S10-Clostridia ribosomal protein leader: a 77-nucleotide RNA from Alkalibaculum bacchi.
[Rfam]
RNA sequence: CAAAUGCGAUGAAGUGAAAGGUUGCUAUGCAAUAGGGAAUUUUCACGGAGUAGUCCAGAUCAUGAAUCGGGCGACGU
Numbered sequence: 001c002a003a004a005u006g007c008g009a010u011g012a013a014g015u016g017a018a019a020g021g022u023u024g025c026u027a028u029g030c031a032a033u034a035g036g037g038a039a040u041u042u043u044c045a046c047g048g049a050g051u052a053g054u055c056c057a058g059a060u061c062a063u064g065a066a067u068c069g070g071g072c073g074a075c076g077u
Stems, first nucleotide, its partner, number of pairs: 014046003018043004025035004053075003058072001060070002
Dot-bracket structure: .............(((.((((...((((...))))....)))))))......(((..(.((.......)).))))..